A member of the RNA family "Lysine riboswitch aptamer" from Tepidanaerobacter acetatoxydans, 175 nucleotides long. A search with the family's covariance model found it, with a score of 127 bits.
RNA sequence: AGUUGAGGUAGAGGCGCGAUGUAUCAAGAGUAAGCUCGUGGAGGCGGGGAGGCCGAUGAAACAAGCCAAAAGGGAUUAUCGCCGAAGUAUGGUUUAUCCCAAAGACCAUGCUGGGCCUAUAUCGAAUAGGUAUAGGACUGUCACCGAAGUAAUUCGGUGGAGAGCUACUUCAAGA
Numbered sequence: 001a002g003u004u005g006a007g008g009u010a011g012a013g014g015c016g017c018g019a020u021g022u023a024u025c026a027a028g029a030g031u032a033a034g035c036u037c038g039u040g041g042a043g044g045c046g047g048g049g050a051g052g053c054c055g056a057u058g059a060a061a062c063a064a065g066c067c068a069a070a071a072g073g074g075a076u077u078a079u080c081g082c083c084g085a086a087g088u089a090u091g092g093u094u095u096a097u098c099c100c101a102a103a104g105a106c107c108a109u110g111c112u113g114g115g116c117c118u119a120u121a122u123c124g125a126a127u128a129g130g131u132a133u134a135g136g137a138c139u140g141u142c143a144c145c146g147a148a149g150u151a152a153u154u155c156g157g158u159g160g161a162g163a164g165c166u167a168c169u170u171c172a173a174g175a
Stems, first nucleotide, its partner, number of pairs: 006170006016082006023076003034066003038062002086112010097101001113139002116136008141160007